[Rfam]
RNA sequence: AAUAAACUUUGGUUUAUACCGAAGACAGCAGGAGCAAAAUUUGCUUAAAUAUCCUGCCGAGGUUGAAGCCUGAAGCCAUAAAAUCCAGAAAAAUAGUAGGUUUUGCUUGCUAUUUUUAUGAUGGGAUU
Numbered sequence: 001a002a003u004a005a006a007c008u009u010u011g012g013u014u015u016a017u018a019c020c021g022a023a024g025a026c027a028g029c030a031g032g033a034g035c036a037a038a039a040u041u042u043g044c045u046u047a048a049a050u051a052u053c054c055u056g057c058c059g060a061g062g063u064u065g066a067a068g069c070c071u072g073a074a075g076c077c078a079u080a081a082a083a084u085c086c087a088g089a090a091a092a093a094u095a096g097u098a099g100g101u102u103u104u105g106c107u108u109g110c111u112a113u114u115u116u117u118a119u120g121a122u123g124g125g126a127u128u
Stems, first nucleotide, its partner, number of pairs: 028057006034044003093113009
A member of the RNA family "Ribosomal protein L10 leader" from Crocosphaera chwakensis, 128 nucleotides long. Gene Ontology term of the family: regulation of gene expression. Pairs were carried over by alignment from the consensus structure, which was predicted with CMfinder. NCBI's taxonomy places the organism under Bacteria, Cyanobacteriota, Cyanophyceae, Crocosphaera, Crocosphaera chwakensis.